About this RNA
MIR7502 microRNA precursor family: a 128-nucleotide RNA from Gossypium laxum. The source organism's lineage runs through Eukaryota, Magnoliopsida, Gunneridae, Pentapetalae and Gossypium. A search with the family's covariance model found it, with a score of 82 bits.

[Rfam]
RNA sequence: UAUUAAAAAUUUCAUCUAUUUCUAUUGUUAAAAGCUGAUCUAUAUAUGUUCGUAAGAGGAACACAUGGCGCAAUUAUUCUGUUAACCAUGCCAAGUUUUAACGGUAGAAGUGGAUGAAAUUUUUAAUA
Numbered sequence: 001u002a003u004u005a006a007a008a009a010u011u012u013c014a015u016c017u018a019u020u021u022c023u024a025u026u027g028u029u030a031a032a033a034g035c036u037g038a039u040c041u042a043u044a045u046a047u048g049u050u051c052g053u054a055a056g057a058g059g060a061a062c063a064c065a066u067g068g069c070g071c072a073a074u075u076a077u078u079c080u081g082u083u084a085a086c087c088a089u090g091c092c093a094a095g096u097u098u099u100a101a102c103g104g105u106a107g108a109a110g111u112g113g114a115u116g117a118a119a120u121u122u123u124u125a126a127u128a
Base pairs, nucleotide, nucleotide: 002127003126004125005124006123007122008121009120010119011118012117013116014115015114016113018111019110020109021108022107023106024105025104026103028101029100030099031098032097033096